A member of the RNA family "Small nucleolar RNA SNORD25" from Helianthus annuus, 86 nucleotides long. The family is grouped with related families in Rfam's "SNORD25 clan". For this family Rfam cites "Identification of 10 novel snoRNA gene clusters from Arabidopsis thaliana" (Qu et al., Nucleic Acids Res, 2001). The base pairs follow the family's consensus structure, which was predicted with PFOLD. Lineage of the source: Eukaryota > Streptophytina > Magnoliopsida > Asteraceae > Helianthus.
[Rfam]
RNA sequence: AGCGACUAUGAUGAGCCAAUACAGACCUGUAAUGAUUUGCGAGCAUGAUCGCAAUUUAUUAUGAACAUCUAAGGGACUGAGUCUUA
Numbered sequence: 001a002g003c004g005a006c007u008a009u010g011a012u013g014a015g016c017c018a019a020u021a022c023a024g025a026c027c028u029g030u031a032a033u034g035a036u037u038u039g040c041g042a043g044c045a046u047g048a049u050c051g052c053a054a055u056u057u058a059u060u061a062u063g064a065a066c067a068u069c070u071a072a073g074g075g076a077c078u079g080a081g082u083c084u085u086a
Base pairs, nucleotide, nucleotide: 002085004083005082006081